[Rfam]
Small nucleolar RNA SNORA79: a 147-nucleotide sequence from Muraenolepis orangiensis. Gene Ontology terms of the family: nucleolus and RNA processing. ACA65 (SNORA79) is a member of the H/ACA class of snoRNAs that guide the sites of modification of uridines to pseudouridines. This snoRNA was identified by computational screening and its expression in mouse experimentally verified by Northern blot and primer extension analysis. By type it is an H/ACA-box small nucleolar RNA. Rfam 15.1 lists 944 matches to the family in 375 species. The organism belongs to Muraenolepis, within Eukaryota.
RNA sequence: UGACGUCAGUUCCUCCUCCUGCUCCCAGAUCAGCAGUGUGGAUUUUAUGAUGUCACAGAAUAAGCUGGGGUCCAUUUCACCCAGGAGGUGUUUUGGGCGCGGCAUGGCUGCCCCUGUAACCUUCUGGUUUUGCUGGACCCCACAAUU
Numbered sequence: 001u002g003a004c005g006u007c008a009g010u011u012c013c014u015c016c017u018c019c020u021g022c023u024c025c026c027a028g029a030u031c032a033g034c035a036g037u038g039u040g041g042a043u044u045u046u047a048u049g050a051u052g053u054c055a056c057a058g059a060a061u062a063a064g065c066u067g068g069g070g071u072c073c074a075u076u077u078c079a080c081c082c083a084g085g086a087g088g089u090g091u092u093u094u095g096g097g098c099g100c101g102g103c104a105u106g107g108c109u110g111c112c113c114c115u116g117u118a119a120c121c122u123u124c125u126g127g128u129u130u131u132g133c134u135g136g137a138c139c140c141c142a143c144a145a146u147u
Base pairs, nucleotide, nucleotide: 001055002054003053004052005051006050007049008048014042015041016040018038020035021034022033023032069139070138071137072136073135074134081127082126083125084124085123086122087121088120089119095113096112097111098110